[Rfam]
RNA sequence: AAAAAUGGUCGGUUGGCUAUGUAUGUCACGCACAUCUUUUAAUUGAUGGGCGAUAUAUGAUUAUCAAGACAUAUGACCGACAUAAUUUAAGGAUGAUAUAGGGUUUGCUUGCUCGGCCAACCCUAUA
Number, nucleotide and partner (000 for none) at each position: 001a000002a000003a000004a000005a000006u000007g000008g081009u080010c079011g078012g077013u000014u028015g027016g026017c025018u000019a000020u000021g000022u000023a000024u000025g017026u016027c015028a014029c052030g051031c050032a000033c048034a047035u046036c045037u000038u000039u000040u000041a000042a000043u000044u000045g036046a035047u034048g033049g000050g031051c030052g029053a000054u075055a074056u073057a072058u071059g070060a000061u000062u000063a000064u000065c000066a000067a000068g000069a000070c059071a058072u057073a056074u055075g054076a000077c012078c011079g010080a009081c008082a000083u000084a000085a000086u000087u000088u000089a000090a000091g000092g000093a000094u000095g000096a000097u000098a000099u125100a124101g123102g122103g121104u120105u119106u000107g117108c116109u115110u000111g000112c000113u000114c000115g109116g108117c107118c000119a105120a104121c103122c102123c101124u100125a099126u000127a000
Rfam assigns this 127-nucleotide RNA from Dendrobium nobile to the family "U11 spliceosomal RNA".
Rfam classes the family as a spliceosomal small nuclear RNA.
The match comes from Rfam's covariance-model search (56 bits).